[Rfam]
Nucleotides: 127
Base pairs, nucleotide, nucleotide: 002053003052004051005050006049007048009046011044014038015037016036017035018034020032025030063124064123066121067120069118070117071116073114079106080105082103084101086099087098088097
Number, partner (000 for none) and nucleotide at each position: 001000a002053g003052c004051a005050u006049c007048u008000g009046u010000g011044u012000a013000u014038u015037u016036u017035u018034u019000u020032u021000u022000u023000a024000a025030c026000u027000u028000g029000u030025g031000g032020a033000u034018g035017a036016a037015g038014a039000c040000u041000u042000a043000g044011a045000g046009a047000a048007a049006g050005g051004u052003g053002c054000a055000a056000a057000a058000a059000c060000u061000a062000a063124a064123u065000c066121c067120u068000c069118u070117u071116u072000c073114a074000c075000a076000u077000c078000c079106c080105a081000c082103a083000u084101c085000c086099c087098a088097u089000u090000g091000u092000u093000u094000a095000g096000a097088a098087u099086g100000a101084g102000u103082u104000u105080u106079g107000a108000u109000u110000c111000a112000u113000a114073u115000a116071a117070a118069a119000a120067g121066g122000a123064a124063u125000a126000u127000u